[Rfam]
RNA sequence: GCCAAAGCCACACACUUCCUUACAUUCCAUAGCAAAGUAAUCCCUAUGGGGAUAUAAAGAAGCAUGUGGCCUUGGG
Numbered sequence: 001g002c003c004a005a006a007g008c009c010a011c012a013c014a015c016u017u018c019c020u021u022a023c024a025u026u027c028c029a030u031a032g033c034a035a036a037g038u039a040a041u042c043c044c045u046a047u048g049g050g051g052a053u054a055u056a057a058a059g060a061a062g063c064a065u066g067u068g069g070c071c072u073u074g075g076g
Stems, first nucleotide, its partner, number of pairs: 007070006015062004020057003024053002027049005
A member of the RNA family "mir-1 microRNA precursor family" from Cavia porcellus, 76 nucleotides long.
The family has 137 seed sequences and 4,474 matches in Rfam 15.1.
This family represents the microRNA (miRNA) mir-1 family. miRNAs are transcribed as ~70nt precursors (modelled here) and subsequently processed by the Dicer enzyme to give a ~22nt product. In this case the mature sequence comes from the 3' arm of the precursor.
The family's consensus secondary structure was predicted with RNAalifold.
Gene Ontology terms of the family: RISC complex and miRNA-mediated post-transcriptional gene silencing.
The match comes from Rfam's covariance-model search (50 bits).